[Rfam]
RNA sequence: GUCACGAACCCACCACUAAUCCAGUAGGUAUAGUGGGGGCUUGAAAAGCCCAAGACGUGACCAGACUAAGGUUCUAGAGACCUACGUUAUUUGAGUCAAGACACCUUGAGAUGCGUGCCAGUCUCACGCUCUGUCGCUCAUCUUUAAACAUCCCUAAACGGGUUAAGGAAGUGAGAUGGGACUAACAAGCUCAAAUAACAUUGUCGAGGCAAACUUUAC
Number, nucleotide and partner (000 for none) at each position: 001g061002u060003c059004a058005c057006g056007a000008a000009c000010c039011c038012a000013c036014c035015a000016c000017u000018a031019a000020u000021c000022c000023a000024g000025u000026a000027g000028g000029u000030a000031u018032a000033g000034u000035g014036g013037g000038g011039g010040c054041u053042u052043g051044a000045a000046a000047a000048g000049c000050c000051c043052a042053a041054g040055a000056c006057g005058u004059g003060a002061c001062c000063a000064g205065a204066c203067u000068a201069a083070g082071g081072u080073u079074c000075u000076a000077g000078a000079g073080a072081c071082c070083u069084a000085c000086g199087u198088u197089a196090u195091u194092u193093g192094a191095g190096u189097c000098a000099a000100g000101a134102c133103a000104c000105c128106u000107u126108g125109a124110g123111a122112u121113g215114c000115g000116u211117g210118c209119c208120a000121g112122u111123c110124u109125c108126a107127c000128g105129c000130u000131c000132u000133g102134u101135c000136g000137c180138u179139c178140a177141u176142c175143u174144u173145u000146a000147a000148a172149c171150a000151u169152c168153c000154c167155u166156a164157a163158a000159c000160g000161g000162g000163u157164u156165a000166a155167g154168g152169a151170a000171g149172u148173g144174a143175g142176a141177u140178g139179g138180g137181a000182c000183u000184a000185a000186c000187a000188a000189g096190c095191u094192c093193a092194a091195a090196u089197a088198a087199c086200a000201u068202u000203g066204u065205c064206g000207a000208g119209g118210c117211a116212a000213a000214c000215u113216u000217u000218a000219c000
RNA: HNH endonuclease-associated RNA and ORF (HEARO) RNA
Organism: Crocosphaera chwakensis